[Rfam]
RNA sequence: GGUCAUGAGUGCCAGCGUCAAGCCCCGGCUUGCUGGCCGGCAACCCUCCUCCGCGGUGGGGUGCCCCGGGUGAGGACCUGGCCGGGCUCGAAGUGAGCCGGGCAAGCGCGGGCC
Numbered sequence: 001g002g003u004c005a006u007g008a009g010u011g012c013c014a015g016c017g018u019c020a021a022g023c024c025c026c027g028g029c030u031u032g033c034u035g036g037c038c039g040g041c042a043a044c045c046c047u048c049c050u051c052c053g054c055g056g057u058g059g060g061g062u063g064c065c066c067c068g069g070g071u072g073a074g075g076a077c078c079u080g081g082c083c084g085g086g087c088u089c090g091a092a093g094u095g096a097g098c099c100g101g102g103c104a105a106g107c108g109c110g111g112g113c114c
Stems, first nucleotide, its partner, number of pairs: 001078004009038001011037006021030002039065003044061003048056002081103003085099006
Notes
A member of the RNA family "SAM (S-adenosyl methionine) riboswitch aptamer" from Haloactinopolyspora alba, 114 nucleotides long. NCBI's taxonomy places the organism under Bacteria, Bacillati, Actinomycetota, Jiangellales, Haloactinopolyspora.